[Rfam]
RNA sequence: GCCAAUGAUGAAAUCAUCCAAAUGUUUGAGAUACGGUGGAUCCAAGACCUUGUUUUACAGGGAGAACCACUUGGUUGAAGCUGUAUUUCACAUGAAAUUUCUGGAUUUUACUGAGGC
Numbered sequence: 001g002c003c004a005a006u007g008a009u010g011a012a013a014u015c016a017u018c019c020a021a022a023u024g025u026u027u028g029a030g031a032u033a034c035g036g037u038g039g040a041u042c043c044a045a046g047a048c049c050u051u052g053u054u055u056u057a058c059a060g061g062g063a064g065a066a067c068c069a070c071u072u073g074g075u076u077g078a079a080g081c082u083g084u085a086u087u088u089c090a091c092a093u094g095a096a097a098u099u100u101c102u103g104g105a106u107u108u109u110a111c112u113g114a115g116g117c
Stems, first nucleotide, its partner, number of pairs: 001117003048062005

Overview:
This 117-nucleotide RNA sequence from Mikania micrantha belongs to the Rfam family "Small nucleolar RNA Z278". Gene Ontology terms of the family: nucleolus and RNA processing. NCBI's taxonomy places the organism under Eukaryota, Streptophyta, Tracheophyta, Magnoliopsida, Mikania. From the family's description: snoZ278 is a C/D box small nucleolar RNA. Its methylation guide targets have not been reported. The match comes from Rfam's covariance-model search (46 bits).